A member of the RNA family "ZMP/ZTP riboswitch aptamer (pfl RNA motif)" from Cryptosporangium aurantiacum, 91 nucleotides long. A search with the family's covariance model found it, with a score of 54 bits. For this family Rfam cites "Recognition of the bacterial alarmone ZMP through long-distance association of two RNA subdomains" (Jones and Ferre-D'Amare, Nat Struct Mol Biol, 2015). The organism belongs to Cryptosporangium, within Bacteria.

RNA sequence: UCACGUGGUCGCGACUGGCGUAGUCGAGGUGGAACUGACCACCGGGAAGCGGCACCGACCCGUACGAACACCGUGCGCCUGGGUGGCGGGG
Numbered sequence: 001u002c003a004c005g006u007g008g009u010c011g012c013g014a015c016u017g018g019c020g021u022a023g024u025c026g027a028g029g030u031g032g033a034a035c036u037g038a039c040c041a042c043c044g045g046g047a048a049g050c051g052g053c054a055c056c057g058a059c060c061c062g063u064a065c066g067a068a069c070a071c072c073g074u075g076c077g078c079c080u081g082g083g084u085g086g087c088g089g090g091g
Base pairs, nucleotide, nucleotide: 004057005056008053009052010051011050012049015046016045017079018078019077020076021075029042030041031040032039069085070084071083072082